This 150-nucleotide sequence from Lentibacillus kapialis belongs to the Rfam family "FMN riboswitch aptamer (RFN element)".
The source organism's lineage runs through Bacteria, Bacillati, Bacillota, Bacillaceae and Lentibacillus.
It scores 115 bits against the family's covariance model.
Pairs were carried over by alignment from the consensus structure, which is taken from published work.
RNA sequence: CUACAUCUUCGGGGCAGGGUGCAAUUCCCGACCGACGGUAAGGAGUAUCGUAAGGUGCUUCAAGUCCGUGACCCGCUUUAUCAAGGAACAGCGGUGGAUCCGGUGUAAGUCCGGAACCGACAGUUACAGUCUGGAUGGGAGAAGAUGACA
Numbered sequence: 001c002u003a004c005a006u007c008u009u010c011g012g013g014g015c016a017g018g019g020u021g022c023a024a025u026u027c028c029c030g031a032c033c034g035a036c037g038g039u040a041a042g043g044a045g046u047a048u049c050g051u052a053a054g055g056u057g058c059u060u061c062a063a064g065u066c067c068g069u070g071a072c073c074c075g076c077u078u079u080a081u082c083a084a085g086g087a088a089c090a091g092c093g094g095u096g097g098a099u100c101c102g103g104u105g106u107a108a109g110u111c112c113g114g115a116a117c118c119g120a121c122a123g124u125u126a127c128a129g130u131c132u133g134g135a136u137g138g139g140a141g142a143a144g145a146u147g148a149c150a
Stems, first nucleotide, its partner, number of pairs: 004147007017029003031130002033119002035069004064117002073094002099115005121133003